[Rfam]
RNA: Small nucleolar RNA SNORD89
RNA sequence: ACUGAGGAGUGAUGACAGUGAAAGGCCGAAUUGCAGUGUGCCCAUCAGCAGUUUGCUCUCUGUGGGGUGCACGAUGACAAAACCUCCAGAAGCGAAUCACUGGUCUGACCUCAGU
Numbered sequence: 001a002c003u004g005a006g007g008a009g010u011g012a013u014g015a016c017a018g019u020g021a022a023a024g025g026c027c028g029a030a031u032u033g034c035a036g037u038g039u040g041c042c043c044a045u046c047a048g049c050a051g052u053u054u055g056c057u058c059u060c061u062g063u064g065g066g067g068u069g070c071a072c073g074a075u076g077a078c079a080a081a082a083c084c085u086c087c088a089g090a091a092g093c094g095a096a097u098c099a100c101u102g103g104u105c106u107g108a109c110c111u112c113a114g115u
Stems, first nucleotide, its partner, number of pairs: 001115007014105003025034002035101004042094001043092001045090002048087001051072002054069005073086002076083001